[Rfam]
RNA sequence: UGUCUCAAAGAUUAAGCCAUGCAUGUCUAAGUAUAAGCGUUAUACUGUGAAACUGCGAAUGGCUCAUUAAAUCAGCAAUAGUUUAUUUGGUGGUGUUUACUACUCGGAUAACCGUAGUAAUUCUAGAGCUAAUACGUGCGUAAAUCCCGACUUUUGAAGGGACGUAUUUAUUAGAUAAAGACCGACCUCGUUUUGCGGUGAAUCAUGAUAACUUUACGGAUCGCAUGGGCUUGUCCCGGCGAUGUUCCAUUCAAAUUUCUGCCCUAUCAACUUUCGAUGGUAGGAUAGAGGCCUACCAUGGUGGUAACGGGUGACGGAGAAUUAGGGUUCGAUUCCGGAGAGGGAGCCUGAGAAACGGCUACCACAUCCAAGGAAGGCAGCAGGCGCGCAAAUUACCCAAUCCUGACACAGGGAGGUAGUGACAAUAAAUAACAAUACCGGGCUUUUUCAAGUCUGGUAAUUGGAAUGAGAACAAUCUAAAUCCCUUAACGAGGAUCCA
Numbered sequence: 001u002g003u004c005u006c007a008a009a010g011a012u013u014a015a016g017c018c019a020u021g022c023a024u025g026u027c028u029a030a031g032u033a034u035a036a037g038c039g040u041u042a043u044a045c046u047g048u049g050a051a052a053c054u055g056c057g058a059a060u061g062g063c064u065c066a067u068u069a070a071a072u073c074a075g076c077a078a079u080a081g082u083u084u085a086u087u088u089g090g091u092g093g094u095g096u097u098u099a100c101u102a103c104u105c106g107g108a109u110a111a112c113c114g115u116a117g118u119a120a121u122u123c124u125a126g127a128g129c130u131a132a133u134a135c136g137u138g139c140g141u142a143a144a145u146c147c148c149g150a151c152u153u154u155u156g157a158a159g160g161g162a163c164g165u166a167u168u169u170a171u172u173a174g175a176u177a178a179a180g181a182c183c184g185a186c187c188u189c190g191u192u193u194u195g196c197g198g199u200g201a202a203u204c205a206u207g208a209u210a211a212c213u214u215u216a217c218g219g220a221u222c223g224c225a226u227g228g229g230c231u232u233g234u235c236c237c238g239g240c241g242a243u244g245u246u247c248c249a250u251u252c253a254a255a256u257u258u259c260u261g262c263c264c265u266a267u268c269a270a271c272u273u274u275c276g277a278u279g280g281u282a283g284g285a286u287a288g289a290g291g292c293c294u295a296c297c298a299u300g301g302u303g304g305u306a307a308c309g310g311g312u313g314a315c316g317g318a319g320a321a322u323u324a325g326g327g328u329u330c331g332a333u334u335c336c337g338g339a340g341a342g343g344g345a346g347c348c349u350g351a352g353a354a355a356c357g358g359c360u361a362c363c364a365c366a367u368c369c370a371a372g373g374a375a376g377g378c379a380g381c382a383g384g385c386g387c388g389c390a391a392a393u394u395a396c397c398c399a400a401u402c403c404u405g406a407c408a409c410a411g412g413g414a415g416g417u418a419g420u421g422a423c424a425a426u427a428a429a430u431a432a433c434a435a436u437a438c439c440g441g442g443c444u445u446u447u448u449c450a451a452g453u454c455u456g457g458u459a460a461u462u463g464g465a466a467u468g469a470g471a472a473c474a475a476u477c478u479a480a481a482u483c484c485c486u487u488a489a490c491g492a493g494g495a496u497c498c499a
Stems, first nucleotide, its partner, number of pairs: 003427001005425001009420001010387001016385003020382003025056002030054003037048002063340003073261003078256002082254002088249003103138001105136002112128001115125003145162004151156001168211006181199004221242004226238004263311003270302003277299008315337004319330004342363002345360003365376001367374002393418001395417003401413005433463003436459010470490001472487001474486001
The record is a 499-nucleotide part of an RNA from Bathycoccus prasinos, which matches "Eukaryotic small subunit ribosomal RNA" in Rfam. Gene Ontology terms of the family: ribosome and structural constituent of ribosome. For this family Rfam cites "Crystal structure of the ribosome at 5.5 A resolution" (Yusupov et al., Science, 2001).